RNA sequence: CCCGCCGCAGAGGAUGGCAUACCCCCUUGAACCGCCAUGUGGCUGAUGAUGCCUGCUUUUUC
Dot-bracket structure: .........[.[[..(((((..]].].......(((....))).....))))).........
This 62-nucleotide sequence from Pluralibacter gergoviae belongs to the Rfam family "Fluoride riboswitch aptamer (crcB RNA motif)".